[Rfam]
RNA sequence: GGUCACGAGUGUCAGUAGUAAUGCCCCGGCUUACUGACCGGCAACCCUCCACCGCGGUGGGGUGCCCCGGGUGAGGACCAGGUCUCAUAACAAAUAGAGACAAGCGCGGGUC
Numbered sequence: 001g002g003u004c005a006c007g008a009g010u011g012u013c014a015g016u017a018g019u020a021a022u023g024c025c026c027c028g029g030c031u032u033a034c035u036g037a038c039c040g041g042c043a044a045c046c047c048u049c050c051a052c053c054g055c056g057g058u059g060g061g062g063u064g065c066c067c068c069g070g071g072u073g074a075g076g077a078c079c080a081g082g083u084c085u086c087a088u089a090a091c092a093a094a095u096a097g098a099g100a101c102a103a104g105c106g107c108g109g110g111u112c
Base pairs, nucleotide, nucleotide: 001079002078003077004076009039011038012037013036014035015034016033023030040066041065042064045062046061047060049057050056082101083100084099085098086097
Shown here is a 112-nucleotide sequence from Enteractinococcus coprophilus, a member of the family "SAM (S-adenosyl methionine) riboswitch aptamer". From the family's description: SAM-IV is a mRNA element that regulates gene expression via direct sensing of S-adenosylmethionine (SAM or AdoMet). The organism belongs to Enteractinococcus, within Bacteria. A reference for the family is Weinberg et al. (2008), "The aptamer core of SAM-IV riboswitches mimics the ligand-binding site of SAM-I riboswitches", RNA. Clan: SAM clan. A search with the family's covariance model found it, with a score of 100 bits.